[Rfam]
RNA sequence: GUGCCCUUUUAAGGUUGAUGCAGUGCUUUAAAAGACUUAACACAGAAGUAAGUCUCCAUAAAAUUCAGGGAACAGAUUGUAAAACUCUUUAUUGGAUCCUGUCUGCAGAUACAGUA
Numbered sequence: 001g002u003g004c005c006c007u008u009u010u011a012a013g014g015u016u017g018a019u020g021c022a023g024u025g026c027u028u029u030a031a032a033a034g035a036c037u038u039a040a041c042a043c044a045g046a047a048g049u050a051a052g053u054c055u056c057c058a059u060a061a062a063a064u065u066c067a068g069g070g071a072a073c074a075g076a077u078u079g080u081a082a083a084a085c086u087c088u089u090u091a092u093u094g095g096a097u098c099c100u101g102u103c104u105g106c107a108g109a110u111a112c113a114g115u116a
Stems, first nucleotide, its partner, number of pairs: 002050003007047004014041004019035001052110001054108002057105002065095004070090002074086002077084002